Small nucleolar RNA U54: an 84-nucleotide sequence from Ensete ventricosum. Lineage of the source: Eukaryota > Streptophytina > Spermatophyta > commelinids > Ensete. The literature on the family includes a 2003 paper in Nucleic Acids Res by Chen et al., "The high diversity of snoRNAs in plants: identification and comparative study of 120 snoRNA genes from Oryza sativa". Pairs were carried over by alignment from the consensus structure, which was predicted with PFOLD. U54 is a C/D box small nucleolar RNA, which acts as a methylation guide for 18S ribosomal RNA in plants. Rfam classes the family as a C/D-box small nucleolar RNA. Rfam links the family to the GO terms nucleolus and RNA processing.
RNA sequence: AGCUCAAUGAUCGUAUUUAUGUUUUUGACAAUAUACGCUAUUCUGAGGAAACUUGAAGUGCUGAUAAGAUACAAUAUGAGAGCU
Numbered sequence: 001a002g003c004u005c006a007a008u009g010a011u012c013g014u015a016u017u018u019a020u021g022u023u024u025u026u027g028a029c030a031a032u033a034u035a036c037g038c039u040a041u042u043c044u045g046a047g048g049a050a051a052c053u054u055g056a057a058g059u060g061c062u063g064a065u066a067a068g069a070u071a072c073a074a075u076a077u078g079a080g081a082g083c084u
Stems, first nucleotide, its partner, number of pairs: 001084005